[Rfam]
RNA sequence: GCCCCUGUGGCGGAAUUGGUAGACGCGCUCGACUCAAAAUCGAGUUUCUAACGAAGUGCCGGUUCGAGUCCGGCCAGGGGUA
Numbered sequence: 001g002c003c004c005c006u007g008u009g010g011c012g013g014a015a016u017u018g019g020u021a022g023a024c025g026c027g028c029u030c031g032a033c034u035c036a037a038a039a040u041c042g043a044g045u046u047u048c049u050a051a052c053g054a055a056g057u058g059c060c061g062g063u064u065c066g067a068g069u070c071c072g073g074c075c076a077g078g079g080g081u082a
Base pairs, nucleotide, nucleotide: 001081002080003079004078005077006076007075010026011025012024028044029043030042031041032040058074059073060072061071062070